[Rfam]
RNA sequence: GGGCAGUGAUGAGGAACAGAGAAAGUCAUGCACCACUCUGACGAUUUUUCAAAUCGACCUGUGCUGAUAAAUUUUCUCAUACCCAUAAGGGCCAUAACAUUCUCUGAGCUC
Numbered sequence: 001g002g003g004c005a006g007u008g009a010u011g012a013g014g015a016a017c018a019g020a021g022a023a024a025g026u027c028a029u030g031c032a033c034c035a036c037u038c039u040g041a042c043g044a045u046u047u048u049u050c051a052a053a054u055c056g057a058c059c060u061g062u063g064c065u066g067a068u069a070a071a072u073u074u075u076c077u078c079a080u081a082c083c084c085a086u087a088a089g090g091g092c093c094a095u096a097a098c099a100u101u102c103u104c105u106g107a108g109c110u111c
Base pairs, nucleotide, nucleotide: 001111002110003109004108
This 111-nucleotide RNA sequence from Juglans regia belongs to the Rfam family "Small nucleolar RNA Z221/R21b". The family's consensus secondary structure was predicted with WAR. Its family is annotated with RNA processing and nucleolus in the Gene Ontology. For this family Rfam cites "The high diversity of snoRNAs in plants: identification and comparative study of 120 snoRNA genes from Oryza sativa" (Chen et al., Nucleic Acids Res, 2003). The family has 12 seed sequences and 588 matches in Rfam 15.1. Lineage of the source: Eukaryota > eudicotyledons > Fagales > Juglandaceae > Juglans. The match comes from Rfam's covariance-model search (54 bits).